The family of this 133-nucleotide sequence from Marinomonas pollencensis is "nqrA-Marinomonas RNA". The source organism's lineage runs through Bacteria, Pseudomonadota, Oceanospirillales, Oceanospirillaceae and Marinomonas. It scores 127 bits against the family's covariance model. The family's RNA type in Rfam is small RNA. The family's consensus secondary structure is taken from published work.

RNA sequence: AUCACUAUAAUACAGCGGUUUUUUGGUGAAGUGAAUUUACGUUUUAUAACAACCUAAGCGGUUUUUAUAGGUUCAUGAAUGUUUUCCCGGAGGGGGUUAUGAACAAAACGUACAGUGCUUUUGUGUUCAAUUU
Numbered sequence: 001a002u003c004a005c006u007a008u009a010a011u012a013c014a015g016c017g018g019u020u021u022u023u024u025g026g027u028g029a030a031g032u033g034a035a036u037u038u039a040c041g042u043u044u045u046a047u048a049a050c051a052a053c054c055u056a057a058g059c060g061g062u063u064u065u066u067a068u069a070g071g072u073u074c075a076u077g078a079a080u081g082u083u084u085u086c087c088c089g090g091a092g093g094g095g096g097u098u099a100u101g102a103a104c105a106a107a108a109c110g111u112a113c114a115g116u117g118c119u120u121u122u123g124u125g126u127u128c129a130a131u132u133u
Base pairs, nucleotide, nucleotide: 009127010126011125012124013123028121029120030119031118032117033116038112039111040110041109042108047067048066049065051063052062053061054060071104072103073102074101075100076099077098078097085096086095087094088093